[Rfam]
RNA sequence: AGAGUGCUGGCGUCCAGGAGGACACUGCGUCACUGCGAGCAUUCACGGAUGCUAUGACCAGGUACUCAGCUCCCCCCGGAGACGCCCCGCAA
Dot-bracket structure: .....(...(..(((.((.((.....(((...(((..((((((....)))))).....))).....).)).)).)).)))..)...).....
Annotation
This 92-nucleotide sequence belongs to the Rfam family "Hepatitis C virus stem-loop SL8670". Rfam classes the family as a cis-regulatory element.